[Rfam]
RNA sequence: ACGAGCACCGGCGAUGGGGCCCGCCCGGAAGUCUGACUUCCGAACCGCCGCAAGGAUGAUGGCCUCUGCGAACGA
Numbered sequence: 001a002c003g004a005g006c007a008c009c010g011g012c013g014a015u016g017g018g019g020c021c022c023g024c025c026c027g028g029a030a031g032u033c034u035g036a037c038u039u040c041c042g043a044a045c046c047g048c049c050g051c052a053a054g055g056a057u058g059a060u061g062g063c064c065u066c067u068g069c070g071a072a073c074g075a
Stems, first nucleotide, its partner, number of pairs: 010025004016066006048055002

A member of the RNA family "Fluoride riboswitch aptamer (crcB RNA motif)" from Mycobacterium talmoniae, 75 nucleotides long.